[Rfam]
RNA sequence: AUUUUUUGAGGUGAGAAAAGGCUCCUCACGCGCUAUAUAACUUAGUAAUCAGAGAUGCAGGAUACGCCGACCUGCCAAAAAUA
Number, nucleotide and partner (000 for none) at each position: 001a082002u081003u080004u079005u078006u077007u000008g076009a000010g000011g029012u028013g027014a026015g025016a000017a000018a000019a000020g068021g067022c066023u000024c000025c015026u014027c013028a012029c011030g000031c052032g046033c045034u044035a043036u000037a000038u000039a000040a000041c000042u000043u035044a034045g033046u032047a000048a000049u000050c000051a000052g031053a000054g000055a000056u000057g075058c074059a073060g072061g071062a000063u000064a000065c000066g022067c021068c020069g000070a000071c061072c060073u059074g058075c057076c008077a006078a005079a004080a003081a002082u001083a000
Background: Shown here is an 83-nucleotide sequence from Clostridium saccharobutylicum, a member of the family "skipping-rope RNA". The sequence is in the family's curated seed alignment. Pairs were carried over by alignment from the consensus structure, which is taken from published work. It is annotated as a small RNA.